[Rfam]
RNA sequence: CCGCCCACCUUUGGGGAGUAGCCGCCCGCACCGAUCAGCGGGGCCUGUCGUCAACACACUUAUCCUUCGGGAUAUGGCGCAGGUGGAGGAAGCCACCAGCUUCCGCGGCGAGACCAAUGGCGUCGGUUUCCGUUC
Numbered sequence: 001c002c003g004c005c006c007a008c009c010u011u012u013g014g015g016g017a018g019u020a021g022c023c024g025c026c027c028g029c030a031c032c033g034a035u036c037a038g039c040g041g042g043g044c045c046u047g048u049c050g051u052c053a054a055c056a057c058a059c060u061u062a063u064c065c066u067u068c069g070g071g072a073u074a075u076g077g078c079g080c081a082g083g084u085g086g087a088g089g090a091a092g093c094c095a096c097c098a099g100c101u102u103c104c105g106c107g108g109c110g111a112g113a114c115c116a117a118u119g120g121c122g123u124c125g126g127u128u129u130c131c132g133u134u135c
Stems, first nucleotide, its partner, number of pairs: 026041003043084005049079005061074005
Manganese Mn2+ riboswitch aptamer (yybP-ykoY): a 135-nucleotide sequence from Caulobacter sp. Root655. The organism belongs to Caulobacter, within Bacteria. A reference for the family is Argaman et al. (2001), "Novel small RNA-encoding genes in the intergenic regions of Escherichia coli", Curr Biol.